DUF3800-VI RNA: a 49-nucleotide RNA.
[Rfam]
RNA sequence: GGCCUGGGAGAUCCUCUUUGGAUCGUCGGAGUUAACUCCGCCCGGGCCU
Numbered sequence: 001g002g003c004c005u006g007g008g009a010g011a012u013c014c015u016c017u018u019u020g021g022a023u024c025g026u027c028g029g030a031g032u033u034a035a036c037u038c039c040g041c042c043c044g045g046g047c048c049u
Stems, first nucleotide, its partner, number of pairs: 001048003005044004010024005027040005

The base pairs follow the family's consensus structure, which is taken from published work.